[Rfam]
RNA: Bacterial large signal recognition particle RNA
RNA sequence: CCAUGCUAGGCGGGGAGCUGGCGGUUCCCUGUACCCGAAAUCCGCCAUAUGCGGGGUCGAAGGCCACCAGAGGCUGCCCUGGUCGGAACGCGGUGCGCUGGAGGAUGUUGAUGGUUGGGUCCUGCGCAACGGGAACCUGUGAACCUGGUCAGGUCCGGAAGGAAGCAGCCAUAAGCGGGCUUACCGUGUGCCGCAGGAGUGCUCAACCUGAGUUCGAAAGCGUAACCGGUCCGGUCUCGGUUAGUCGAAGGUGGAUGCAUGG
Numbered sequence: 001c002c003a004u005g006c007u008a009g010g011c012g013g014g015g016a017g018c019u020g021g022c023g024g025u026u027c028c029c030u031g032u033a034c035c036c037g038a039a040a041u042c043c044g045c046c047a048u049a050u051g052c053g054g055g056g057u058c059g060a061a062g063g064c065c066a067c068c069a070g071a072g073g074c075u076g077c078c079c080u081g082g083u084c085g086g087a088a089c090g091c092g093g094u095g096c097g098c099u100g101g102a103g104g105a106u107g108u109u110g111a112u113g114g115u116u117g118g119g120u121c122c123u124g125c126g127c128a129a130c131g132g133g134a135a136c137c138u139g140u141g142a143a144c145c146u147g148g149u150c151a152g153g154u155c156c157g158g159a160a161g162g163a164a165g166c167a168g169c170c171a172u173a174a175g176c177g178g179g180c181u182u183a184c185c186g187u188g189u190g191c192c193g194c195a196g197g198a199g200u201g202c203u204c205a206a207c208c209u210g211a212g213u214u215c216g217a218a219a220g221c222g223u224a225a226c227c228g229g230u231c232c233g234g235u236c237u238c239g240g241u242u243a244g245u246c247g248a249a250g251g252u253g254g255a256u257g258c259a260u261g262g
Stems, first nucleotide, its partner, number of pairs: 001262006009058003012030008034055004039050001064254005072246005078239001081236007092227002094224006104214003113208008121197006127188002130186003134182001136179005146171004154163003